About this RNA: Shown here is a 117-nucleotide sequence from Sodalis glossinidius, a member of the family "ALIL pseudoknot". Gene Ontology term of the family: positive regulation of translational frameshifting. Rfam 15.1 lists 2,146 matches to the family in 1,098 species. The literature on the family includes a 2008 paper in J Biol Chem by Mazauric et al., "Apical loop-internal loop RNA pseudoknots: a new type of stimulator of -1 translational frameshifting in bacteria".
[Rfam]
RNA sequence: AGCAUAUUUUGCCCAGGCGGCGCUCGACCGCCACUGCAAGAAAUAGCGUCGUUAAAGGUGCCGCUGAUGGAACAGCAUGGGGUCGAGCCGGUAUGUCAGGAACGGCAUAUUGCCCCG
Numbered sequence: 001a002g003c004a005u006a007u008u009u010u011g012c013c014c015a016g017g018c019g020g021c022g023c024u025c026g027a028c029c030g031c032c033a034c035u036g037c038a039a040g041a042a043a044u045a046g047c048g049u050c051g052u053u054a055a056a057g058g059u060g061c062c063g064c065u066g067a068u069g070g071a072a073c074a075g076c077a078u079g080g081g082g083u084c085g086a087g088c089c090g091g092u093a094u095g096u097c098a099g100g101a102a103c104g105g106c107a108u109a110u111u112g113c114c115c116c117g
Stems, first nucleotide, its partner, number of pairs: 016032005078117005089112002092109006
It is annotated as a cis-regulatory element.
Taxonomically the source falls in Sodalis (Bacteria, Pseudomonadati, Gammaproteobacteria, Enterobacterales).